[Rfam]
RNA sequence: CCGUCCGGCCCGUGGGACGCCGUGUCCACCCCGGCCCCUGCGCGGUUACGCUGGCCCCGUGCAUCCUCCACCGAGGGUGCAAAGCCGACAGCCGUCGCAUCCCAGGGAGCUCAUCCAUG
Numbered sequence: 001c002c003g004u005c006c007g008g009c010c011c012g013u014g015g016g017a018c019g020c021c022g023u024g025u026c027c028a029c030c031c032c033g034g035c036c037c038c039u040g041c042g043c044g045g046u047u048a049c050g051c052u053g054g055c056c057c058c059g060u061g062c063a064u065c066c067u068c069c070a071c072c073g074a075g076g077g078u079g080c081a082a083a084g085c086c087g088a089c090a091g092c093c094g095u096c097g098c099a100u101c102c103c104a105g106g107g108a109g110c111u112c113a114u115c116c117a118u119g
Stems, first nucleotide, its partner, number of pairs: 060081004065076004084098002087096003
Dot-bracket structure: ...........................................................((((.((((....)))).))))..((.(((....))))).....................
RNA: Streptomyces-metH RNA
Organism: Streptomyces vietnamensis